[Rfam]
Rfam assigns this 139-nucleotide RNA sequence from Oryza punctata to the family "Small nucleolar RNA Z247".
RNA sequence: CGCGUUGAAGAGGAAGAGUUGAUCACCUACAUGCUGCAAGGUCUCGGCCCCGACUACAACUCCCUCAUCACAAGCAUCACAACACGCAGUGAUCCUUACACGAUCAGUGAUGUGUAUGCCCACAUGCUUGACUUCGAGA
Numbered sequence: 001c002g003c004g005u006u007g008a009a010g011a012g013g014a015a016g017a018g019u020u021g022a023u024c025a026c027c028u029a030c031a032u033g034c035u036g037c038a039a040g041g042u043c044u045c046g047g048c049c050c051c052g053a054c055u056a057c058a059a060c061u062c063c064c065u066c067a068u069c070a071c072a073a074g075c076a077u078c079a080c081a082a083c084a085c086g087c088a089g090u091g092a093u094c095c096u097u098a099c100a101c102g103a104u105c106a107g108u109g110a111u112g113u114g115u116a117u118g119c120c121c122a123c124a125u126g127c128u129u130g131a132c133u134u135c136g137a138g139a
Stems, first nucleotide, its partner, number of pairs: 005137004088108001090106004
Dot-bracket structure: ....((((...............................................................................(.((((.........)))).).........................))))..
Overview:
Its family is annotated with nucleolus and RNA processing in the Gene Ontology. Taxonomically the source falls in Oryza (Eukaryota, Streptophyta, Embryophyta, Tracheophyta). The match comes from Rfam's covariance-model search (42 bits). By type it is a C/D-box small nucleolar RNA.